The family of this 107-nucleotide sequence from Chlorobium sp. is "SAM riboswitch aptamer (S box leader)".
[Rfam]
Nucleotides: 107
Base pairs, nucleotide, nucleotide: 001107002106003105004104005103006102007101008100013042014041015040016039017038021031022030023029026079027078028077043072044071045070046069048068049067050065051064052063053062076099080096081095082094083093084092085091
Number, partner (000 for none) and nucleotide at each position: 001107c002106u003105a004104u005103c006102a007101u008100c009000c010000a011000g012000a013042a014041a015040g016039g017038c018000g019000g020000a021031g022030g023029g024000a025000c026079u027078g028077g029023c030022c031021c032000u033000g034000a035000g036000a037000a038017g039016c040015c041014u042013u043072g044071g045070c046069a047000a048068c049067c050065u051064u052063c053062a054000u055000c056000g057000c058000a059000a060000g061000a062053u063052g064051a065050g066000a067049g068048g069046u070045g071044c072043c073000a074000a075000u076099u077028c078027c079026a080096c081095c082094c083093g084092g085091a086000a087000u088000g089000a090000g091085u092084c093083c094082g095081g096080g097000a098000a099076a100008g101007a102006u103005g104004g105003u106002g107001g
NCBI's taxonomy places the organism under Bacteria, Pseudomonadati, Chlorobiota, Chlorobiaceae, Chlorobium. The family's consensus secondary structure is taken from published work. For this family Rfam cites "SAM recognition and conformational switching mechanism in the Bacillus subtilis yitJ S box/SAM-I riboswitch" (Lu et al., J Mol Biol, 2010).